This 93-nucleotide RNA sequence from Flavobacterium sp. Sd200 belongs to the Rfam family "TPP riboswitch aptamer (THI element)".
Vitamin B(1) in its active form thiamin pyrophosphate (TPP) is an essential coenzyme that is synthesised by coupling of pyrimidine and thiazole moieties in bacteria.
It scores 72 bits against the family's covariance model.
The base pairs follow the family's consensus structure, which is taken from published work.
RNA sequence: CUUUGGCUUUAGGGGUAUUCUGAAAAGAAUUGAGAGAGUCCCUUUGAACCUGACGCGGUUGAUACCGCCGUAGGGAAAAGCAGUAAGGAUGCA
Numbered sequence: 001c002u003u004u005g006g007c008u009u010u011a012g013g014g015g016u017a018u019u020c021u022g023a024a025a026a027g028a029a030u031u032g033a034g035a036g037a038g039u040c041c042c043u044u045u046g047a048a049c050c051u052g053a054c055g056c057g058g059u060u061g062a063u064a065c066c067g068c069c070g071u072a073g074g075g076a077a078a079a080g081c082a083g084u085a086a087g088g089a090u091g092c093a
Base pairs, nucleotide, nucleotide: 006081007080008079009078010077011043012042013041014040016037017030018029019028020027021026049074050073051072052071055068056067057066058065